[Rfam]
RNA: Group II catalytic intron D1-D4-2
Organism: Solimicrobium silvestre
RNA sequence: GAGGGCCGACCCCUCGUGAUCGGCGUGCAGGCGCAGGUCACAAACCACCUCAAGCUGCGAGGGUAAAGAGCCCUGGUGGUGAGCGUUGAGGCUAAAAGGCGGAGUUAACUCCGUCAGGU
Numbered sequence: 001g002a003g004g005g006c007c008g009a010c011c012c013c014u015c016g017u018g019a020u021c022g023g024c025g026u027g028c029a030g031g032c033g034c035a036g037g038u039c040a041c042a043a044a045c046c047a048c049c050u051c052a053a054g055c056u057g058c059g060a061g062g063g064u065a066a067a068g069a070g071c072c073c074u075g076g077u078g079g080u081g082a083g084c085g086u087u088g089a090g091g092c093u094a095a096a097a098g099g100c101g102g103a104g105u106u107a108a109c110u111c112c113g114u115c116a117g118g119u
Stems, first nucleotide, its partner, number of pairs: 001015005016041006023034004046118001048091006054080002057077002061073004098115006